Notes:
Shown here is a 53-nucleotide sequence, a member of the family "leuA-Halobacteria RNA". The family's consensus secondary structure is taken from published work. The sequence is in the family's curated seed alignment.

[Rfam]
RNA sequence: ACCAUCGGAGGAUAGAGGAAGUCGGGGCGACCCGGCUGGCCGUGAAAUUGGCU
Numbered sequence: 001a002c003c004a005u006c007g008g009a010g011g012a013u014a015g016a017g018g019a020a021g022u023c024g025g026g027g028c029g030a031c032c033c034g035g036c037u038g039g040c041c042g043u044g045a046a047a048u049u050g051g052c053u
Stems, first nucleotide, its partner, number of pairs: 020037007